[Rfam]
RNA sequence: UUCGAUAUGAUGAAGCAUUUUACGGAUGUAAAAAGGAGCCUUCGAGCUUCAUGUACACCGAGAGCGCAUAACCCCAUGUGGAUGCUUCCGUUGCCUUCCUUCUGAUCGUUCAU
Numbered sequence: 001u002u003c004g005a006u007a008u009g010a011u012g013a014a015g016c017a018u019u020u021u022a023c024g025g026a027u028g029u030a031a032a033a034a035g036g037a038g039c040c041u042u043c044g045a046g047c048u049u050c051a052u053g054u055a056c057a058c059c060g061a062g063a064g065c066g067c068a069u070a071a072c073c074c075c076a077u078g079u080g081g082a083u084g085c086u087u088c089c090g091u092u093g094c095c096u097u098c099c100u101u102c103u104g105a106u107c108g109u110u111c112a113u
Base pairs, nucleotide, nucleotide: 004111005110023090024089025088026087
Background
Rfam assigns this 113-nucleotide RNA from Microstroma glucosiphilum to the family "Small nucleolar RNA Z13/snr52". It is annotated as a C/D-box small nucleolar RNA. Gene Ontology terms of the family: nucleolus and RNA processing. The source organism's lineage runs through Eukaryota, Opisthokonta, Basidiomycota, Microstromataceae and Microstroma.